RNA sequence: AAUUUCACCUCGGGGUGCCUUACUAUCAGGCUGAGAUCAAACCCGUUGAACCUGGACCAGGUAAUGCUGGUUAGGAAAGGUAAGCGACCACUCU
Numbered sequence: 001a002a003u004u005u006c007a008c009c010u011c012g013g014g015g016u017g018c019c020u021u022a023c024u025a026u027c028a029g030g031c032u033g034a035g036a037u038c039a040a041a042c043c044c045g046u047u048g049a050a051c052c053u054g055g056a057c058c059a060g061g062u063a064a065u066g067c068u069g070g071u072u073a074g075g076a077a078a079g080g081u082a083a084g085c086g087a088c089c090a091c092u093c094u
Stems, first nucleotide, its partner, number of pairs: 007081004011045004016039001017031004051075004057070004